[Rfam]
RNA sequence: UGGAAGAAUCCUUAAAGCUCAGGAGGGAUAGCGCCAUGGUCACUCUUUGAGGUUUUCCUUCUCGUCUGUGACGCUAUCCAUCCUGAGUUUUAUGGCUUCUUCCU
Numbered sequence: 001u002g003g004a005a006g007a008a009u010c011c012u013u014a015a016a017g018c019u020c021a022g023g024a025g026g027g028a029u030a031g032c033g034c035c036a037u038g039g040u041c042a043c044u045c046u047u048u049g050a051g052g053u054u055u056u057c058c059u060u061c062u063c064g065u066c067u068g069u070g071a072c073g074c075u076a077u078c079c080a081u082c083c084u085g086a087g088u089u090u091u092a093u094g095g096c097u098u099c100u101u102c103c104u
Stems, first nucleotide, its partner, number of pairs: 010095001016089009026079008035070001

Annotation: A member of the RNA family "MIR390 microRNA precursor family" from Vanilla planifolia, 104 nucleotides long. It scores 91 bits against the family's covariance model. Rfam links the family to the GO terms miRNA-mediated post-transcriptional gene silencing and RISC complex. Lineage of the source: Eukaryota > Asparagales > Orchidaceae > Vanilleae > Vanilla.